[Rfam]
RNA sequence: UUAGUGGAAGCUUUAGGUACUGAACUGUUUUGUCCCUCUCUGUCAAAGAAAAAUUGUUCUCUGUUAGCAGAGAGUGACAGAACAGUUCAAUAGCUAAAGCGUCCACUAAC
Numbered sequence: 001u002u003a004g005u006g007g008a009a010g011c012u013u014u015a016g017g018u019a020c021u022g023a024a025c026u027g028u029u030u031u032g033u034c035c036c037u038c039u040c041u042g043u044c045a046a047a048g049a050a051a052a053a054u055u056g057u058u059c060u061c062u063g064u065u066a067g068c069a070g071a072g073a074g075u076g077a078c079a080g081a082a083c084a085g086u087u088c089a090a091u092a093g094c095u096a097a098a099g100c101g102u103c104c105a106c107u108a109a110c
Stems, first nucleotide, its partner, number of pairs: 001109006011099006018092002021089008029071005049060001051058002
The record is a 110-nucleotide sequence from Plutella xylostella, which matches "mir-8517 microRNA precursor family" in Rfam. Lineage of the source: Eukaryota > Eumetazoa > Dicondylia > Yponomeutoidea > Plutella. It scores 76 bits against the family's covariance model.